[Rfam]
U5 spliceosomal RNA: a 109-nucleotide sequence from Balaenoptera physalus.
U5 RNA is a component of both types of known spliceosome. The precise function of this molecule is unknown, though it is known that the 5' loop is required for splice site selection and p220 binding, and that both the 3' stem-loop and the Sm site are important for Sm protein binding and cap methylation.

RNA sequence: AUACUCUGGUUUCUCUUCAGACUGUAUAAAUCUUUUGCCUUUUACUAAAGAUUUCCGUGGAAAAGAACAGUUGUGAGGGGUUUUUUUAGGGGUUUAAAAAAAAAACCAU
Numbered sequence: 001a002u003a004c005u006c007u008g009g010u011u012u013c014u015c016u017u018c019a020g021a022c023u024g025u026a027u028a029a030a031u032c033u034u035u036u037g038c039c040u041u042u043u044a045c046u047a048a049a050g051a052u053u054u055c056c057g058u059g060g061a062a063a064a065g066a067a068c069a070g071u072u073g074u075g076a077g078g079g080g081u082u083u084u085u086u087u088a089g090g091g092g093u094u095u096a097a098a099a100a101a102a103a104a105a106c107c108a109u
Base pairs, nucleotide, nucleotide: 004077005076006075009068010067011066012065014063016061017060018059019058028054029053030052031051032050033049034048035047088109091107092106093105094104095103

The family's consensus secondary structure is taken from published work. The literature on the family includes a 1997 paper in Nucleic Acids Res by Zwieb, "The uRNA database".